Shown here is a 391-nucleotide sequence from Natronobacillus azotifigens, a member of the family "Bacterial RNase P class B".
A reference for the family is Frank and Pace (1998), "Ribonuclease P: unity and diversity in a tRNA processing ribozyme", Annu Rev Biochem.
The source organism's lineage runs through Bacteria, Bacillota, Caryophanales, Bacillaceae and Natronobacillus.
It scores 331 bits against the family's covariance model.
Ribonuclease P (RNase P) is a ubiquitous endoribonuclease, found in archaea, bacteria and eukarya as well as chloroplasts and mitochondria.
[Rfam]
RNA sequence: AUGUUUUGAUAAUCGCUGUGCAUGUAUGUGCUCAGAGGAAAGUCCAUGCUCACACAGGCUGCGAUGCUUGUAGUGUUCGUGCUUGAUGAAUUCAUAAAUCAAGGGAAUCGAGUAUUCGAUUAACGGCAGGAUAAGUAGCUAAGUCUUUUUUAAGAUAUGCUAUGAUAUCCUUGAAAGUGCCACAGUGACGUAGUCAGACUGGAAACAGUUUGAGUGGAACGAGGUAAACCCCACGAGUGAGCAACCCAAAUUUUGGUAGGGGCAUCUUGUAGUAGGGAAACGAACCGAAACAAGGACAAGUAACAAGAUUACUUGUAGAUAGAUGGUUAUCACCAAGGUACAAGGCUGACCACCGUUUGUAGUACUUUGGGACAGAACAUGGCUUAUAAAA
Numbered sequence: 001a002u003g004u005u006u007u008g009a010u011a012a013u014c015g016c017u018g019u020g021c022a023u024g025u026a027u028g029u030g031c032u033c034a035g036a037g038g039a040a041a042g043u044c045c046a047u048g049c050u051c052a053c054a055c056a057g058g059c060u061g062c063g064a065u066g067c068u069u070g071u072a073g074u075g076u077u078c079g080u081g082c083u084u085g086a087u088g089a090a091u092u093c094a095u096a097a098a099u100c101a102a103g104g105g106a107a108u109c110g111a112g113u114a115u116u117c118g119a120u121u122a123a124c125g126g127c128a129g130g131a132u133a134a135g136u137a138g139c140u141a142a143g144u145c146u147u148u149u150u151u152a153a154g155a156u157a158u159g160c161u162a163u164g165a166u167a168u169c170c171u172u173g174a175a176a177g178u179g180c181c182a183c184a185g186u187g188a189c190g191u192a193g194u195c196a197g198a199c200u201g202g203a204a205a206c207a208g209u210u211u212g213a214g215u216g217g218a219a220c221g222a223g224g225u226a227a228a229c230c231c232c233a234c235g236a237g238u239g240a241g242c243a244a245c246c247c248a249a250a251u252u253u254u255g256g257u258a259g260g261g262g263c264a265u266c267u268u269g270u271a272g273u274a275g276g277g278a279a280a281c282g283a284a285c286c287g288a289a290a291c292a293a294g295g296a297c298a299a300g301u302a303a304c305a306a307g308a309u310u311a312c313u314u315g316u317a318g319a320u321a322g323a324u325g326g327u328u329a330u331c332a333c334c335a336a337g338g339u340a341c342a343a344g345g346c347u348g349a350c351c352a353c354c355g356u357u358u359g360u361a362g363u364a365c366u367u368u369g370g371g372a373c374a375g376a377a378c379a380u381g382g383c384u385u386a387u388a389a390a391a
Stems, first nucleotide, its partner, number of pairs: 004391003008331007016035003020031002040385003044382005049241005054071006077236005082103006104124001106121005125231002128171004136162004143156005177229002179225003194213008245261003265295006296316008333370009